[Rfam]
RNA sequence: AAGACUAUACUUUCAGGGAUCAUUUCUAUAGUUUGUUACUAGAGAAGUUUCUUUGAUCGUGUAGAGCACCGAAAACCACGAGGAGGAGCCACAGUGUUUUCUUCUGAGCGUGAAGCCGGCGUUUGGUGUGGUAGUCAUUACAUCUGCCAUUUGCCAUUGAUGAUCGUUCUUACUCUUCUGUGGAAGAGUUAGAGGGGGAAAACGCAUUCUGAGUGGU
Numbered sequence: 001a002a003g004a005c006u007a008u009a010c011u012u013u014c015a016g017g018g019a020u021c022a023u024u025u026c027u028a029u030a031g032u033u034u035g036u037u038a039c040u041a042g043a044g045a046a047g048u049u050u051c052u053u054u055g056a057u058c059g060u061g062u063a064g065a066g067c068a069c070c071g072a073a074a075a076c077c078a079c080g081a082g083g084a085g086g087a088g089c090c091a092c093a094g095u096g097u098u099u100u101c102u103u104c105u106g107a108g109c110g111u112g113a114a115g116c117c118g119g120c121g122u123u124u125g126g127u128g129u130g131g132u133a134g135u136c137a138u139u140a141c142a143u144c145u146g147c148c149a150u151u152u153g154c155c156a157u158u159g160a161u162g163a164u165c166g167u168u169c170u171u172a173c174u175c176u177u178c179u180g181u182g183g184a185a186g187a188g189u190u191a192g193a194g195g196g197g198g199a200a201a202a203c204g205c206a207u208u209c210u211g212a213g214u215g216g217u
Base pairs, nucleotide, nucleotide: 002040003039006035007034009032010031011030015027016026017025018024049065050064054061075217076216077215078214079213094205095204096203097202098201099200100199101198102197103196104195105194108167109166110165118155119154120153121152124149125148126147127146128144131141132140170191172189173188174187175186176185177184178183